[Rfam]
RNA sequence: GUCGAGCAUGUGGGAGAACCGGGGUCGCCCCGGUGCCGAAGGAGCAACCGCCCCGGAAACUCUCAGGCCAAAGGACCGUAUGCUCGAC
Numbered sequence: 001g002u003c004g005a006g007c008a009u010g011u012g013g014g015a016g017a018a019c020c021g022g023g024g025u026c027g028c029c030c031c032g033g034u035g036c037c038g039a040a041g042g043a044g045c046a047a048c049c050g051c052c053c054c055g056g057a058a059a060c061u062c063u064c065a066g067g068c069c070a071a072a073g074g075a076c077c078g079u080a081u082g083c084u085c086g087a088c
Stems, first nucleotide, its partner, number of pairs: 006083008019033004035068003038064002042062003048056002

The record is an 88-nucleotide RNA sequence from Pseudodonghicola xiamenensis, which matches "Glycine riboswitch aptamer" in Rfam. The source organism's lineage runs through Bacteria, Pseudomonadota, Rhodobacterales, Paracoccaceae and Pseudodonghicola. The match comes from Rfam's covariance-model search (58 bits). The pairing is the family consensus, mapped onto this sequence. Its family is annotated with glycine biosynthetic process in the Gene Ontology.